[Rfam]
RNA sequence: UCCACGACAUUGGGGUGCACGGCUGCAGGGCUGUGCUGAGAACAUACCCAUUGAACCUGCUCUAGCUAGAACUAGCGAAGGGAUUGUCGUGACUCAGCCA
Number, nucleotide and partner (000 for none) at each position: 001u000002c000003c000004a000005c000006g088007a087008c086009a085010u000011u050012g049013g048014g047015g000016u044017g036018c035019a034020c033021g032022g031023c030024u000025g000026c000027a000028g000029g000030g023031c022032u021033g020034u019035g018036c017037u000038g000039a000040g000041a000042a000043c000044a016045u000046a000047c014048c013049c012050a011051u000052u000053g000054a000055a000056c081057c080058u079059g000060c000061u000062c075063u074064a073065g072066c000067u000068a000069g000070a000071a000072c065073u064074a063075g062076c000077g000078a000079a058080g057081g056082g000083a000084u000085u009086g008087u007088c006089g000090u000091g000092a000093c000094u000095c000096a000097g000098c000099c000100a000